Shown here is an 86-nucleotide sequence from Anaerostipes rhamnosivorans, a member of the family "c-di-GMP-I riboswitch aptamer". Lineage of the source: Bacteria > Bacillota > Clostridia > Lachnospiraceae > Anaerostipes. The match comes from Rfam's covariance-model search (72 bits).
[Rfam]
RNA sequence: UUGAAUAUUGGGCAAAGCAGGCGAAAGCCUGUGACGCAAAGCUAAAGGGUCUAAGAUUUUAGGGAUUAUGACAGCCAGCUGCAGUU
Number, nucleotide and partner (000 for none) at each position: 001u000002u000003g000004a000005a000006u000007a000008u000009u000010g000011g000012g037013c036014a000015a000016a000017g032018c031019a030020g029021g028022c027023g000024a000025a000026a000027g022028c021029c020030u019031g018032u017033g000034a000035c000036g013037c012038a000039a000040a080041g079042c078043u077044a000045a000046a000047g076048g075049g072050u071051c070052u000053a000054a000055g000056a066057u065058u064059u063060u000061a000062g000063g059064g058065a057066u056067u000068a000069u000070g051071a050072c049073a000074g000075c048076c047077a043078g042079c041080u040081g000082c000083a000084g000085u000086u000

Its family is annotated with cyclic-di-GMP binding in the Gene Ontology.